A member of the RNA family "ZMP/ZTP riboswitch aptamer (pfl RNA motif)" from Pseudoselenomonas ruminis, 83 nucleotides long. The organism belongs to Pseudoselenomonas, within Bacteria. The family's consensus secondary structure is taken from published work.

RNA sequence: AACGAGCUGCAUGGCUGACGGAUUCGUGGAAUUGACCACAGGCCGUGCAGUUCGGGAAAAAGCCGACCGUCUGGGCACCUUUU
Numbered sequence: 001a002a003c004g005a006g007c008u009g010c011a012u013g014g015c016u017g018a019c020g021g022a023u024u025c026g027u028g029g030a031a032u033u034g035a036c037c038a039c040a041g042g043c044c045g046u047g048c049a050g051u052u053c054g055g056g057a058a059a060a061a062g063c064c065g066a067c068c069g070u071c072u073g074g075g076c077a078c079c080u081u082u083u
Base pairs, nucleotide, nucleotide: 003054004053005052006051007050008049009048010047011046012045015042016041017071018070019069020068021067026039027038028037029036062076063075064074